[Rfam]
RNA sequence: CCACGGGUUUGCACCCGUGGCUGCAGCAUGCCGUCCCGUUGGGACU
Numbered sequence: 001c002c003a004c005g006g007g008u009u010u011g012c013a014c015c016c017g018u019g020g021c022u023g024c025a026g027c028a029u030g031c032c033g034u035c036c037c038g039u040u041g042g043g044a045c046u
Base pairs, nucleotide, nucleotide: 001020002019003018004017005016006015007014008013033045034044035043036042037041
A member of the RNA family "Acido-Lenti-1 RNA" from Novipirellula maiorica, 46 nucleotides long.